[Rfam]
RNA sequence: AAUGAGUUGUUUUUCACUUUUAUUAUAGGUUUUAUGGGACCUUUUCUAAACAAAUAGGCUUCAUAAUUUCUGAAGUAGCUUUACCUACUACAGAAAUUAUAGAGUC
Numbered sequence: 001a002a003u004g005a006g007u008u009g010u011u012u013u014u015c016a017c018u019u020u021u022a023u024u025a026u027a028g029g030u031u032u033u034a035u036g037g038g039a040c041c042u043u044u045u046c047u048a049a050a051c052a053a054a055u056a057g058g059c060u061u062c063a064u065a066a067u068u069u070c071u072g073a074a075g076u077a078g079c080u081u082u083a084c085c086u087a088c089u090a091c092a093g094a095a096a097u098u099a100u101a102g103a104g105u106c
Stems, first nucleotide, its partner, number of pairs: 001024006009017002027042005057106005063100008074089005